[Rfam]
RNA: mir-451 microRNA precursor family
RNA sequence: CAUGGUGUGUCGGUGAAACCGUUACCCUUACUGAGUUUAGUAAAGGUAACGGUUCUGCUGCCACCCCAGCA
Dot-bracket structure: ......(((.(((...((((.(((((.((((((....)))))).))))).))))...))).))).......